[Rfam]
Shown here is a 123-nucleotide sequence from Oryza brachyantha, a member of the family "MIR397 microRNA precursor family".
RNA sequence: AGGAAAGGCAUUAUUGAGUGCAGCGUUGAUGAACCUGCCGACCGACCAAUUAAUUAAUUCAUUAAUUAAUUAGUCUGAAAGUGGCUCGAAGGUUCACCAGCACUGCACCCAAUCACGCCUUUG
Number, nucleotide and partner (000 for none) at each position: 001a000002g000003g000004a000005a000006a120007g119008g118009c117010a000011u115012u000013a113014u112015u111016g110017a000018g108019u107020g106021c105022a104023g103024c000025g101026u100027u099028g098029a000030u096031g095032a094033a093034c092035c091036u090037g000038c000039c000040g000041a000042c000043c000044g000045a000046c000047c000048a000049a000050u000051u000052a000053a000054u000055u000056a000057a000058u000059u000060c000061a000062u000063u000064a000065a000066u000067u000068a000069a000070u000071u000072a000073g000074u000075c000076u000077g000078a000079a000080a000081g000082u000083g000084g000085c000086u000087c000088g000089a000090a036091g035092g034093u033094u032095c031096a030097c000098c028099a027100g026101c025102a000103c023104u022105g021106c020107a019108c018109c000110c016111a015112a014113u013114c000115a011116c000117g009118c008119c007120u006121u000122u000123g000